[Rfam]
The record is a 121-nucleotide RNA from Hipposideros armiger, which matches "Small nucleolar RNA SNORA25" in Rfam.
Pairs were carried over by alignment from the consensus structure, which was predicted with RNAfold.
About the family: ACA25 is a member of the H/ACA class of snoRNA that guide the sites of modification of uridines to pseudouridines.
Rfam 15.1 lists 1,129 matches to the family in 449 species.
Rfam links the family to the GO terms nucleolus and RNA processing.
Nucleotides: 121
Base pairs, nucleotide, nucleotide: 002057003056004055005054006053007052014045015044017042018041019040020039021038023037026035070114071113072112073111074110077107078106079105080104085099086093087092
Number, partner (000 for none) and nucleotide at each position: 001000a002057g003056g004055u005054c006053a007052u008000u009000u010000c011000a012000a013000a014045g015044a016000c017042a018041g019040c020039u021038u022000g023037u024000g025000g026035g027000a028000u029000c030000a031000a032000a033000a034000c035026c036000a037023g038021g039020a040019g041018c042017u043000c044015u045014u046000a047000a048000c049000g050000c051000u052007g053006u054005g055004a056003c057002c058000a059000a060000a061000g062000a063000u064000u065000g066000a067000a068000g069000u070114u071113c072112u073111c074110c075000a076000u077107a078106g079105g080104a081000u082000g083000u084000c085099a086093c087092u088000c089000a090000a091000u092087a093086g094000a095000g096000c097000c098000a099085u100000g101000u102000g103000u104080u105079c106078c107077u108000g109000a110074g111073g112072a113071g114070a115000u116000a117000u118000a119000u120000a121000a